[Rfam]
RNA sequence: CGUGGGGUGGAGUCCCUCAGCCUGUAUUGUGAGAGGGCUCAGGUCAGGCUGAGGGACCCACUGAUGCAGG
Numbered sequence: 001c002g003u004g005g006g007g008u009g010g011a012g013u014c015c016c017u018c019a020g021c022c023u024g025u026a027u028u029g030u031g032a033g034a035g036g037g038c039u040c041a042g043g044u045c046a047g048g049c050u051g052a053g054g055g056a057c058c059c060a061c062u063g064a065u066g067c068a069g070g
Stems, first nucleotide, its partner, number of pairs: 003068002006065001008063003012057011024045001027042003031038001
This 70-nucleotide RNA from Cnephaeus nilssonii belongs to the Rfam family "mir-9193 microRNA precursor family".
The family has 2 seed sequences and 6,008 matches in Rfam 15.1.
It scores 56 bits against the family's covariance model.
Gene Ontology terms of the family: RISC complex and miRNA-mediated post-transcriptional gene silencing.